[Rfam]
RNA sequence: UAGCAGUUCCAAGCUCUGAGAACUGAAUUUCAUGGACUGGUUGUAAUUCAUUGUCUUCAGUCCAUAGUACUCAGUUCUCUAGCUUGGCUGUAUCUG
Numbered sequence: 001u002a003g004c005a006g007u008u009c010c011a012a013g014c015u016c017u018g019a020g021a022a023c024u025g026a027a028u029u030u031c032a033u034g035g036a037c038u039g040g041u042u043g044u045a046a047u048u049c050a051u052u053g054u055c056u057u058c059a060g061u062c063c064a065u066a067g068u069a070c071u072c073a074g075u076u077c078u079c080u081a082g083c084u085u086g087g088c089u090g091u092a093u094c095u096g
Stems, first nucleotide, its partner, number of pairs: 009087002012084003019078008034063006
RNA: mir-146 microRNA precursor family